Shown here is a 117-nucleotide RNA from Panicum miliaceum, a member of the family "Small nucleolar RNA Z278". Its family is annotated with nucleolus and RNA processing in the Gene Ontology. NCBI's taxonomy places the organism under Eukaryota, Streptophyta, Embryophyta, Panicum, Panicum sect. Panicum. The family's consensus secondary structure was predicted with PFOLD. Rfam describes the family as follows. snoZ278 is a C/D box small nucleolar RNA. Its methylation guide targets have not been reported. On this family, see Chen et al., Nucleic Acids Res 2003: "The high diversity of snoRNAs in plants: identification and comparative study of 120 snoRNA genes from Oryza sativa".
[Rfam]
RNA sequence: GCCACUGAUGAAAUCGCCCAAUGUUUGGAGGCUGCAAUCGGCUCCAAGUUCCUGCUUGUCAGGAAGAACCUACUUGGAGCCCUGCACUCGAAUGGCAACAUCGGGCAAUGCUGAGGU
Numbered sequence: 001g002c003c004a005c006u007g008a009u010g011a012a013a014u015c016g017c018c019c020a021a022u023g024u025u026u027g028g029a030g031g032c033u034g035c036a037a038u039c040g041g042c043u044c045c046a047a048g049u050u051c052c053u054g055c056u057u058g059u060c061a062g063g064a065a066g067a068a069c070c071u072a073c074u075u076g077g078a079g080c081c082c083u084g085c086a087c088u089c090g091a092a093u094g095g096c097a098a099c100a101u102c103g104g105g106c107a108a109u110g111c112u113g114a115g116g117u
Stems, first nucleotide, its partner, number of pairs: 001117003050064005